Shown here is a 308-nucleotide RNA from Galemys pyrenaicus, a member of the family "7SK RNA". Its Rfam clan is "7SK clan". Rfam classes the family as a non-coding RNA gene.
RNA sequence: GGAUGUGAGGGCGAUCUGGCUGCGACAUCUGUCACCCCAUUGAUCGCCAGGGUUGAUUCGGCUGAUCUGGCUGGCUGGGCGGGUGUCCCCUUCCUCCCUCACCGCUCCAUGUGCGUCCCUCCCGAAGCUGCGCGCUCGGUCGAAGAGGAUGGCCUUCCCCGAAUAGAGACGGACCGGUCUUCGGUCGAGGGUAUACGAGUAGCUGCGCUCCCCUGCUAGAACCUCCAAACAAGCUCUCAAAGCAAACAUGUGUAAAAGCAUUUGAAGUGUAAAAAUACAACGUACAUAUGCAACCUUUGAAAAUCAUU
Numbered sequence: 001g002g003a004u005g006u007g008a009g010g011g012c013g014a015u016c017u018g019g020c021u022g023c024g025a026c027a028u029c030u031g032u033c034a035c036c037c038c039a040u041u042g043a044u045c046g047c048c049a050g051g052g053u054u055g056a057u058u059c060g061g062c063u064g065a066u067c068u069g070g071c072u073g074g075c076u077g078g079g080c081g082g083g084u085g086u087c088c089c090c091u092u093c094c095u096c097c098c099u100c101a102c103c104g105c106u107c108c109a110u111g112u113g114c115g116u117c118c119c120u121c122c123c124g125a126a127g128c129u130g131c132g133c134g135c136u137c138g139g140u141c142g143a144a145g146a147g148g149a150u151g152g153c154c155u156u157c158c159c160c161g162a163a164u165a166g167a168g169a170c171g172g173a174c175c176g177g178u179c180u181u182c183g184g185u186c187g188a189g190g191g192u193a194u195a196c197g198a199g200u201a202g203c204u205g206c207g208c209u210c211c212c213c214u215g216c217u218a219g220a221a222c223c224u225c226c227a228a229a230c231a232a233g234c235u236c237u238c239a240a241a242g243c244a245a246a247c248a249u250g251u252g253u254a255a256a257a258g259c260a261u262u263u264g265a266a267g268u269g270u271a272a273a274a275a276u277a278c279a280a281c282g283u284a285c286a287u288a289u290g291c292a293a294c295c296u297u298u299g300a301a302a303a304u305c306a307u308u
Base pairs, nucleotide, nucleotide: 001108002107003106005102006101007100008099009098010097011096013093014092018090019089024087025086026085027084028083029082030081031080032079033078035074036073037070038069039068042067043066044065045064046062047061048060116172117171119168120167121166122139123138124137125136127135128134140162141161142160147158148157149156208267209266211264214260215259216258224254226252229251230250231249233247
The family has 45 seed sequences and 49,373 matches in Rfam 15.1.